[Rfam]
RNA sequence: UUGCAAGCCUUCUGGCAUGCUUGGGUCAAGGGUGACUCAGUGCAUUCCUGCGGUGCUUACUAGAAUGUUCUGCAGUGUUUGGAGGCUUUGCCCCAUCCCUUCCGCAGAGCAUGGUCAUAGACAUUUCAGACAGUC
Numbered sequence: 001u002u003g004c005a006a007g008c009c010u011u012c013u014g015g016c017a018u019g020c021u022u023g024g025g026u027c028a029a030g031g032g033u034g035a036c037u038c039a040g041u042g043c044a045u046u047c048c049u050g051c052g053g054u055g056c057u058u059a060c061u062a063g064a065a066u067g068u069u070c071u072g073c074a075g076u077g078u079u080u081g082g083a084g085g086c087u088u089u090g091c092c093c094c095a096u097c098c099c100u101u102c103c104g105c106a107g108a109g110c111a112u113g114g115u116c117a118u119a120g121a122c123a124u125u126u127c128a129g130a131c132a133g134u135c
Stems, first nucleotide, its partner, number of pairs: 003060001005058004018044003023038005071128002074125002086114002089111003093107001
The family of this 135-nucleotide RNA from Crocuta crocuta is "Small nucleolar RNA SNORA9". Taxonomically the source falls in Crocuta (Eukaryota, Theria, Boreoeutheria, Laurasiatheria). It is annotated as an H/ACA-box small nucleolar RNA. ACA9 is a member of the H/ACA class of snoRNA that guide the sites of modification of uridines to pseudouridines. Its family is annotated with nucleolus and RNA processing in the Gene Ontology.